The record is a 103-nucleotide RNA sequence from Halalkalibacter krulwichiae, which matches "Purine riboswitch aptamer" in Rfam. The family's consensus secondary structure is taken from published work. A search with the family's covariance model found it, with a score of 78 bits.
RNA sequence: AUCGAAAAACGAAUAAGACCUCAUAUAAUUUUGGGAAUAUGGUCCAUAAGUUUCUACCCGGUUGCCGUAAAAAAAUCGGACUAUGAGGGAAAGUGGUUGCUUA
Dot-bracket structure: ..................(((((((...((.((((.......)))).))........((((((..........))))))..)))))))...............
Numbered sequence: 001a002u003c004g005a006a007a008a009a010c011g012a013a014u015a016a017g018a019c020c021u022c023a024u025a026u027a028a029u030u031u032u033g034g035g036a037a038u039a040u041g042g043u044c045c046a047u048a049a050g051u052u053u054c055u056a057c058c059c060g061g062u063u064g065c066c067g068u069a070a071a072a073a074a075a076u077c078g079g080a081c082u083a084u085g086a087g088g089g090a091a092a093g094u095g096g097u098u099g100c101u102u103a
Stems, first nucleotide, its partner, number of pairs: 019088007029049002032046004058079006